[Rfam]
Flavo-1 RNA: an 86-nucleotide RNA sequence from Polaribacter vadi. NCBI's taxonomy places the organism under Bacteria, Bacteroidota, Flavobacteriia, Flavobacteriales, Polaribacter. Rfam classes the family as a small RNA. A search with the family's covariance model found it, with a score of 46 bits.
RNA sequence: UUCUAGCCCUGAUUGAAGCAUUUGUUUGAGCUCUUUUUUAUGCUUUUUCAGCAUAAAAAAAGCGAGUGCUGAAAGCAGGAAAUAGC
Numbered sequence: 001u002u003c004u005a006g007c008c009c010u011g012a013u014u015g016a017a018g019c020a021u022u023u024g025u026u027u028g029a030g031c032u033c034u035u036u037u038u039u040a041u042g043c044u045u046u047u048u049c050a051g052c053a054u055a056a057a058a059a060a061a062g063c064g065a066g067u068g069c070u071g072a073a074a075g076c077a078g079g080a081a082a083u084a085g086c
Base pairs, nucleotide, nucleotide: 009078010077011076013074014073018069019068030063031062032061036058037057038056039055040054041053042052043051